[Rfam]
RNA sequence: UAGCAGUUUGCCAAACUCAUCGUAAGGUGAGGACGGAAAGCCACGGGUCCUUUAGAGGAUAGCCGGGUUGCCAGCA
Number, nucleotide and partner (000 for none) at each position: 001u076002a000003g000004c000005a000006g000007u000008u000009u000010g000011c036012c035013a000014a000015a000016c031017u030018c029019a028020u027021c026022g000023u000024a000025a000026g021027g020028u019029g018030a017031g016032g000033a000034c062035g012036g011037a000038a000039a069040g068041c067042c066043a000044c065045g064046g063047g060048u059049c058050c000051u000052u000053u000054a000055g000056a000057g000058g049059a048060u047061a000062g034063c046064c045065g044066g042067g041068u040069u039070g000071c000072c000073a000074g000075c000076a001

This 76-nucleotide RNA sequence from Desulfocapsa sulfexigens belongs to the Rfam family "c-di-GMP-I-GGC riboswitch aptamer".
Rfam 15.1 lists 1,298 matches to the family in 717 species.